This 116-nucleotide sequence from Daucus carota belongs to the Rfam family "Small nucleolar RNA snoR104". The family has 8 seed sequences and 612 matches in Rfam 15.1. A search with the family's covariance model found it, with a score of 79 bits. On this family, see Marker et al., Curr Biol 2002: "Experimental RNomics: identification of 140 candidates for small non-messenger RNAs in the plant Arabidopsis thaliana". Pairs were carried over by alignment from the consensus structure, which was predicted with WAR.

[Rfam]
RNA sequence: GGGGAGCAUCUCUAGUCUUAGAUGUUGCCUGAUAGAAGCUUCCUAUAAAAAUUUCUGUAAUUUCCUGCUUGUGUCUUUUAAGAAAAUUCACAGGCCUCUAGUUACAAGAUACAAUG
Numbered sequence: 001g002g003g004g005a006g007c008a009u010c011u012c013u014a015g016u017c018u019u020a021g022a023u024g025u026u027g028c029c030u031g032a033u034a035g036a037a038g039c040u041u042c043c044u045a046u047a048a049a050a051a052u053u054u055c056u057g058u059a060a061u062u063u064c065c066u067g068c069u070u071g072u073g074u075c076u077u078u079u080a081a082g083a084a085a086a087u088u089c090a091c092a093g094g095c096c097u098c099u100a101g102u103u104a105c106a107a108g109a110u111a112c113a114a115u116g
Stems, first nucleotide, its partner, number of pairs: 001030003005026007054109003067095007076086001078085001
Dot-bracket structure: (((.(((((((........))))))).))).......................(((..........(((((((..(.(......))..)))))))...........))).......